[Rfam]
RNA: Stem loopII regulatory element in POLB
RNA sequence: AGCCCACUAGGAGUCCUAAUUUAUUUCUUAACCUUUGCUAUGUAAGGGUUUUUGGUGUUCUUAAGCGAUUGCUUCUUCUCUGUGCU
Numbered sequence: 001a002g003c004c005c006a007c008u009a010g011g012a013g014u015c016c017u018a019a020u021u022u023a024u025u026u027c028u029u030a031a032c033c034u035u036u037g038c039u040a041u042g043u044a045a046g047g048g049u050u051u052u053u054g055g056u057g058u059u060c061u062u063a064a065g066c067g068a069u070u071g072c073u074u075c076u077u078c079u080c081u082g083u084g085c086u
Base pairs, nucleotide, nucleotide: 009079010078011077012076017063018062019061025055026054031049032048033047034046035045036044037043038042